Bacillaceae-1 RNA: a 67-nucleotide RNA sequence from Oceanobacillus picturae. It scores 82 bits against the family's covariance model. NCBI's taxonomy places the organism under Bacteria, Bacillati, Bacilli, Caryophanales, Oceanobacillus. Rfam classes the family as a small RNA. The family's consensus secondary structure is taken from published work.
[Rfam]
Nucleotides: 067
Base pairs, nucleotide, nucleotide: 011049013047014046015045016044017043025039026038027037028036029035053067054066055065056064057063
Number, partner (000 for none) and nucleotide at each position: 001000a002000g003000g004000a005000a006000a007000g008000g009000a010000a011049c012000a013047a014046a015045g016044g017043c018000u019000a020000a021000g022000a023000g024000c025039g026038c027037c028036a029035c030000g031000u032000c033000c034000u035029g036028u037027g038026g039025c040000a041000a042000c043017g044016c045015c046014u047013u048000c049011g050000u051000g052000a053067c054066c055065a056064a057063c058000a059000u060000c061000c062000u063057g064056u065055u066054g067053g